[Rfam]
The record is a 257-nucleotide RNA from Streptomyces minutiscleroticus, which matches "Streptomyces sRNA 4677" in Rfam. Located in the intergenic region between anti-sigma factor SCO4677 gene and a putative regulatory protein gene SCO4676. scr4677 expression requires the SCO4677 activity and scr4677 sRNA itself seem to affect the levels of the SCO4676-associated transcripts.
RNA sequence: CGGCCCGGUGACGCGCGACGUCCUUGAAAUCCCUUGGUGAAAUACCGAACCGCCCCCACCCGGCCCGUCCGGCCCGACCCGUCCCCGGGGGCGAGUCGGGCCGCCACCCGUUCGGGUGACGAGGGCAUCAAGUGCUCGGGCAGGUGCGGUACGGUCGCGGCGAACAACCCCGAAUACAGACCCGAAUACAGAACGGCCCCCGGCGGGACUGCAAUCCCGACGAGGGCCUGACCAACUAGGAAGUAAGCCCCUUCCCA
Numbered sequence: 001c002g003g004c005c006c007g008g009u010g011a012c013g014c015g016c017g018a019c020g021u022c023c024u025u026g027a028a029a030u031c032c033c034u035u036g037g038u039g040a041a042a043u044a045c046c047g048a049a050c051c052g053c054c055c056c057c058a059c060c061c062g063g064c065c066c067g068u069c070c071g072g073c074c075c076g077a078c079c080c081g082u083c084c085c086c087g088g089g090g091g092c093g094a095g096u097c098g099g100g101c102c103g104c105c106a107c108c109c110g111u112u113c114g115g116g117u118g119a120c121g122a123g124g125g126c127a128u129c130a131a132g133u134g135c136u137c138g139g140g141c142a143g144g145u146g147c148g149g150u151a152c153g154g155u156c157g158c159g160g161c162g163a164a165c166a167a168c169c170c171c172g173a174a175u176a177c178a179g180a181c182c183c184g185a186a187u188a189c190a191g192a193a194c195g196g197c198c199c200c201c202g203g204c205g206g207g208a209c210u211g212c213a214a215u216c217c218c219g220a221c222g223a224g225g226g227c228c229u230g231a232c233c234a235a236c237u238a239g240g241a242a243g244u245a246a247g248c249c250c251c252u253u254c255c256c257a
Base pairs, nucleotide, nucleotide: 007236009234010233017069018068019067020066082100083099084098115169116168117167195228196227197226198225199224201222202221205218206217207216208215239255240254241253242252243251
Source information:
NCBI's taxonomy places the organism under Bacteria, Actinomycetota, Actinomycetes, Kitasatosporales, Streptomyces.